This 97-nucleotide sequence from Nicotiana sylvestris belongs to the Rfam family "MIR6152 microRNA precursor family". A search with the family's covariance model found it, with a score of 99 bits.
RNA sequence: UGGACAAAUUAUUGUAUUCGACUGUAUUCACUGCGUAAAAUAGGAGAUUACACUAUUUUUAAAACAGAAAGUGAAACAAUUAACAUAAUGGACUCCU
Numbered sequence: 001u002g003g004a005c006a007a008a009u010u011a012u013u014g015u016a017u018u019c020g021a022c023u024g025u026a027u028u029c030a031c032u033g034c035g036u037a038a039a040a041u042a043g044g045a046g047a048u049u050a051c052a053c054u055a056u057u058u059u060u061a062a063a064a065c066a067g068a069a070a071g072u073g074a075a076a077c078a079a080u081u082a083a084c085a086u087a088a089u090g091g092a093c094u095c096c097u
Base pairs, nucleotide, nucleotide: 002096003095004094009091010090011089012088013087014086015085017083018082020081021080023078024077027075028074029073030072031071035065036064037059038058039057040056041055042054043053
Background
Taxonomically the source falls in Nicotiana (Eukaryota, Embryophyta, Magnoliopsida, Nicotianoideae). Rfam 15.1 lists 5,807 matches to the family in 3 species.